The record is a 77-nucleotide sequence from Cricetulus griseus, which matches "mir-17 microRNA precursor family" in Rfam. About the family: This family represents the microRNA (miRNA) precursor mir-17, family, which includes mir-20, mir-91, and mir-103. miRNAs are transcribed as ~70nt precursors (modelled here) and subsequently processed by the Dicer enzyme to give a ~22nt product. In this case the mature sequence comes from the 3' arm of the precursor. The sequence is in the family's curated seed alignment. Taxonomically the source falls in Cricetulus (Eukaryota, Metazoa, Deuterostomia, Muroidea).
[Rfam]
RNA sequence: UCUGUGGCACUAAAGUGCUUAUAGUGCAGGUAGUGUCCACUCAUCUACUGCAUUACGAGCACUUCCAGUGCUGCCAG
Dot-bracket structure: ...((((.(((.((((((((.((((((.(((((...........))))))))))).))))))))..))).))))...